[Rfam]
RNA sequence: UUCUUUCGGUGAUAUGUUUGAUAUUCUUGGUUGUACAAGUUAUACAAUCAACCAAGAAUCAGACAUAUAAUCCAAACGUU
Numbered sequence: 001u002u003c004u005u006u007c008g009g010u011g012a013u014a015u016g017u018u019u020g021a022u023a024u025u026c027u028u029g030g031u032u033g034u035a036c037a038a039g040u041u042a043u044a045c046a047a048u049c050a051a052c053c054a055a056g057a058a059u060c061a062g063a064c065a066u067a068u069a070a071u072c073c074a075a076a077c078g079u080u
Stems, first nucleotide, its partner, number of pairs: 005076002008073002012068011024056002029053005
RNA: mir-190 microRNA precursor family